SAM riboswitch aptamer (S box leader): a 110-nucleotide sequence from Flammeovirga pectinis. Taxonomically the source falls in Flammeovirga (Bacteria, Cytophagia, Cytophagales, Flammeovirgaceae). It scores 74 bits against the family's covariance model. Rfam 15.1 lists 9,625 matches to the family in 4,158 species.
[Rfam]
RNA sequence: UACUUAUCAAGAAAGGCAGAGGGACUGGGCCCUAUAACGUCUUGGCAACCUGCGCUCUCCAUAGCAAGGUGCCAAUUCCCAACUCGAAGGUGUUCGAGAAAAGAUGAGUU
Dot-bracket structure: .(((((((....(((((...(((..[[[[)))......)))))((((.(((((..........))).))))))...(]]]].(((((......)))))...)))))))).